[Rfam]
RNA: Small nucleolar RNA SNORD97
Organism: Nothobranchius furzeri
RNA sequence: AUGCCCGGUGAUUAUAAAAAGACGCGUUAUUCUGAGGAACAAAACCUGCUAUUAGUGCUUCUCUCCUCUCUCCUCUUCCAUUUCUUCUCCUUUACCCCUCCUCUUCCUUCCUAACUAGUAGCAGGUCCAAUGAUUGCGAUUAUGAGAUAUGAGGGCGU
Numbered sequence: 001a002u003g004c005c006c007g008g009u010g011a012u013u014a015u016a017a018a019a020a021g022a023c024g025c026g027u028u029a030u031u032c033u034g035a036g037g038a039a040c041a042a043a044a045c046c047u048g049c050u051a052u053u054a055g056u057g058c059u060u061c062u063c064u065c066c067u068c069u070c071u072c073c074u075c076u077u078c079c080a081u082u083u084c085u086u087c088u089c090c091u092u093u094a095c096c097c098c099u100c101c102u103c104u105u106c107c108u109u110c111c112u113a114a115c116u117a118g119u120a121g122c123a124g125g126u127c128c129a130a131u132g133a134u135u136g137c138g139a140u141u142a143u144g145a146g147a148u149a150u151g152a153g154g155g156c157g158u
Base pairs, nucleotide, nucleotide: 001158002157003156004155005154006153035062036061037060038059040057041056